[Rfam]
RNA: Small nucleolar RNA SNORA17
Organism: Tyrannus savana
RNA sequence: UGCCACUGGCGUUGCAGAGAUGGCUGCUGUGGCAUCUUUGUGUCAAGACGUGGCAAGAGAGACAGGCUGUGUUCUACGCUCGUUUGCUCUGCAGCCCGUGAGCACUCAGAGUGAUUGACAGCCUGACAUC
Dot-bracket structure: ((((...(((...((((.((((.(......).)))).))))))).......)))).....(.((((((((......((.((.(.(((((..........)))))...))).))....)))))))).)...